[Rfam]
Rfam assigns this 165-nucleotide RNA sequence from Streptomyces aurantiacus to the family "c-di-AMP riboswitch aptamer (ydaO/yuaA leader)".
RNA sequence: GAAACCCAGCCACCCAUUCACUCGCGUACGGCAGGAGCGGGGGACCCAGGUAAGUCGCCGGUCCCGUUAUCGGAACGGCUAGGGGUUAAGUCGCGUACAGCACGCGACCGGGCAUCUCCCGCCCGAACCCGACAGCUCACCUCGUAGGCGCCGGAGAGGAAUUCG
Numbered sequence: 001g002a003a004a005c006c007c008a009g010c011c012a013c014c015c016a017u018u019c020a021c022u023c024g025c026g027u028a029c030g031g032c033a034g035g036a037g038c039g040g041g042g043g044a045c046c047c048a049g050g051u052a053a054g055u056c057g058c059c060g061g062u063c064c065c066g067u068u069a070u071c072g073g074a075a076c077g078g079c080u081a082g083g084g085g086u087u088a089a090g091u092c093g094c095g096u097a098c099a100g101c102a103c104g105c106g107a108c109c110g111g112g113c114a115u116c117u118c119c120c121g122c123c124c125g126a127a128c129c130c131g132a133c134a135g136c137u138c139a140c141c142u143c144g145u146a147g148g149c150g151c152c153g154g155a156g157a158g159g160a161a162u163u164c165g
Base pairs, nucleotide, nucleotide: 005035006034037145038144039143040142041141042140047082083130084129085128091107092106093105094104110124111123112122113121
Notes
A search with the family's covariance model found it, with a score of 65 bits.